[Rfam]
RNA sequence: GCAGACUCACUCUGUGCCUGACUGCAAUCUUCAGUCCAGGGGCUUUUUCAGUCUGCUAGAGUAAUGGUCCAGUGUGUUAAGAACUCUUCUUUCCUUGUAGAAGAUUUGUAGUUGCUCCUGGGACAUAAUU
Numbered sequence: 001g002c003a004g005a006c007u008c009a010c011u012c013u014g015u016g017c018c019u020g021a022c023u024g025c026a027a028u029c030u031u032c033a034g035u036c037c038a039g040g041g042g043c044u045u046u047u048u049c050a051g052u053c054u055g056c057u058a059g060a061g062u063a064a065u066g067g068u069c070c071a072g073u074g075u076g077u078u079a080a081g082a083a084c085u086c087u088u089c090u091u092u093c094c095u096u097g098u099a100g101a102a103g104a105u106u107u108g109u110a111g112u113u114g115c116u117c118c119u120g121g122g123a124c125a126u127a128a129u130u
Stems, first nucleotide, its partner, number of pairs: 001056006014043002017040004022034003069121004074115002076112004081107001085104004
RNA: Small nucleolar RNA SNORA77
Organism: Chelydra serpentina